About this RNA
mir-596 microRNA precursor family: a 73-nucleotide RNA from Pan troglodytes. Taxonomically the source falls in Pan (Eukaryota, Eumetazoa, Gnathostomata, Homininae). The sequence is in the family's curated seed alignment. The family's consensus secondary structure was predicted with RNAalifold. Rfam links the family to the GO terms miRNA-mediated post-transcriptional gene silencing and RISC complex.
RNA sequence: CGGCCUCUCCGAAGCCUGCCCGGCUCCGCGGGAACCUGCCUCCCGCAUGGCAGCUGCUGCCCUUCAGAGGCCG
Numbered sequence: 001c002g003g004c005c006u007c008u009c010c011g012a013a014g015c016c017u018g019c020c021c022g023g024c025u026c027c028g029c030g031g032g033a034a035c036c037u038g039c040c041u042c043c044c045g046c047a048u049g050g051c052a053g054c055u056g057c058u059g060c061c062c063u064u065c066a067g068a069g070g071c072c073g
Stems, first nucleotide, its partner, number of pairs: 001073008011065004018060002021056005026050002029045005